The record is a 96-nucleotide RNA sequence from Serratia fonticola, which matches "Aggregatibacter sRNA 22" in Rfam. The family's RNA type in Rfam is small RNA. The base pairs follow the family's consensus structure, which was predicted with RNAfold. On this family, see Oogai et al., DNA Res 2017: "Small RNA repertoires and their intraspecies variation in Aggregatibacter actinomycetemcomitans".
RNA sequence: CUGGGGUGACAAAUCUGUCGGGAACAGAUUUGAACGCUGUACACAGCGGCCCCGAAGGGGUGAGGCCCAGGGAUGGGCCGAGUAGCUAUGUGCAGG
Numbered sequence: 001c002u003g004g005g006g007u008g009a010c011a012a013a014u015c016u017g018u019c020g021g022g023a024a025c026a027g028a029u030u031u032g033a034a035c036g037c038u039g040u041a042c043a044c045a046g047c048g049g050c051c052c053c054g055a056a057g058g059g060g061u062g063a064g065g066c067c068c069a070g071g072g073a074u075g076g077g078c079c080g081a082g083u084a085g086c087u088a089u090g091u092g093c094a095g096g
Base pairs, nucleotide, nucleotide: 010032011031012030013029014028015027016026017025035048036047037046038045039044049061050060051059052058053057064079065078066077067076068075069074082093083092084091